Shown here is a 92-nucleotide RNA from Kineobactrum sediminis, a member of the family "t44 RNA". The family's RNA type in Rfam is small RNA. NCBI's taxonomy places the organism under Bacteria, Pseudomonadati, Pseudomonadota, Cellvibrionales, Kineobactrum. The base pairs follow the family's consensus structure, which was predicted with LocARNA.
RNA sequence: GAGAAGAUAACCUAACGACGCACACAUAUCGACACCUGCGCCAGGGUGCCGGCUUACGCUGGUUUGGUGCAUGGGAUAUGUGGAGGAUUAAC
Numbered sequence: 001g002a003g004a005a006g007a008u009a010a011c012c013u014a015a016c017g018a019c020g021c022a023c024a025c026a027u028a029u030c031g032a033c034a035c036c037u038g039c040g041c042c043a044g045g046g047u048g049c050c051g052g053c054u055u056a057c058g059c060u061g062g063u064u065u066g067g068u069g070c071a072u073g074g075g076a077u078a079u080g081u082g083g084a085g086g087a088u089u090a091a092c
Base pairs, nucleotide, nucleotide: 023082024081025080026079027078028077029076030075035073037071038070039069040068041067042066043065048063049062050061051060052059